Notes
The record is a 79-nucleotide sequence from Alligator mississippiensis, which matches "mir-208 microRNA precursor family" in Rfam.
RNA sequence: UCCAACAGGGAAGCUUUUGGCUUGGGUUAUAUUGUCACUCGCAGUGUAUAAGACGAGCGAAAAGCUUCUUGGUUGGAAG
Numbered sequence: 001u002c003c004a005a006c007a008g009g010g011a012a013g014c015u016u017u018u019g020g021c022u023u024g025g026g027u028u029a030u031a032u033u034g035u036c037a038c039u040c041g042c043a044g045u046g047u048a049u050a051a052g053a054c055g056a057g058c059g060a061a062a063a064g065c066u067u068c069u070u071g072g073u074u075g076g077a078a079g
Stems, first nucleotide, its partner, number of pairs: 003075004008070002011067008020058001023055002027051006
Dot-bracket structure: ..((((.((.((((((((.(..((..((((((.............))))))..))..).)))))))).)).))))....
A reference for the family is Lagos-Quintana et al. (2003), "New microRNAs from mouse and human", RNA.